[Rfam]
A member of the RNA family "Bacterial small signal recognition particle RNA" from Oscillospiraceae bacterium HV4-5-C5C, 99 nucleotides long.
The signal recognition particle (SRP) is a universally conserved ribonucleoprotein involved in the co-translational targeting of proteins to membranes.
Rfam classes the family as a non-coding RNA gene.
Pairs were carried over by alignment from the consensus structure, which is taken from published work.
NCBI's taxonomy places the organism under Bacteria, Bacillota, Clostridia, Eubacteriales, Oscillospiraceae.
A search with the family's covariance model found it, with a score of 65 bits.
RNA sequence: CUCCGGGCCCUGUGCGAUAUGGCCCGCGAACCCUGUCAGGUCCGGAAGGAAGCAGCAGUAAGCGGUCACCCAUAUGUGCUGCAGUUCAGUCUGGGGUCG
Numbered sequence: 001c002u003c004c005g006g007g008c009c010c011u012g013u014g015c016g017a018u019a020u021g022g023c024c025c026g027c028g029a030a031c032c033c034u035g036u037c038a039g040g041u042c043c044g045g046a047a048g049g050a051a052g053c054a055g056c057a058g059u060a061a062g063c064g065g066u067c068a069c070c071c072a073u074a075u076g077u078g079c080u081g082c083a084g085u086u087c088a089g090u091c092u093g094g095g096g097u098c099g
Stems, first nucleotide, its partner, number of pairs: 004093005010084005015076001017075006024065004033058004041050003